A member of the RNA family "SAM riboswitch aptamer (S box leader)" from Mitsuokella multacida, 104 nucleotides long. Taxonomically the source falls in Mitsuokella multacida (Bacteria, Bacillota, Selenomonadales, Mitsuokella).
[Rfam]
RNA sequence: CUCACAUCCAGAGCGGCGGAGGGACUGGCCCGAUGAAACCGCGGCAACCAUUGACUUCGUCAAAACGGUGCCAAUUCCUUUAGGUCCGGCCUAUAAGAUGAGAG
Numbered sequence: 001c002u003c004a005c006a007u008c009c010a011g012a013g014c015g016g017c018g019g020a021g022g023g024a025c026u027g028g029c030c031c032g033a034u035g036a037a038a039c040c041g042c043g044g045c046a047a048c049c050a051u052u053g054a055c056u057u058c059g060u061c062a063a064a065a066c067g068g069u070g071c072c073a074a075u076u077c078c079u080u081u082a083g084g085u086c087c088g089g090c091c092u093a094u095a096a097g098a099u100g101a102g103a104g
Stems, first nucleotide, its partner, number of pairs: 001104003005100004013042004021031003027078002043072004048068002051063003076096001081093005